[Rfam]
RNA sequence: UGCGGCAGCAGGACUUAGCCCACAUGUGAACAGUGAGUGUAUGCCAUGUUCACAGUGGUUAAGUUCUGCCGCCACA
Numbered sequence: 001u002g003c004g005g006c007a008g009c010a011g012g013a014c015u016u017a018g019c020c021c022a023c024a025u026g027u028g029a030a031c032a033g034u035g036a037g038u039g040u041a042u043g044c045c046a047u048g049u050u051c052a053c054a055g056u057g058g059u060u061a062a063g064u065u066c067u068g069c070c071g072c073c074a075c076a
Stems, first nucleotide, its partner, number of pairs: 011066010026053007
The family of this 76-nucleotide RNA from Oryzias latipes is "mir-27 microRNA precursor family". The sequence is in the family's curated seed alignment. NCBI's taxonomy places the organism under Eukaryota, Metazoa, Chordata, Eurypterygia, Oryzias.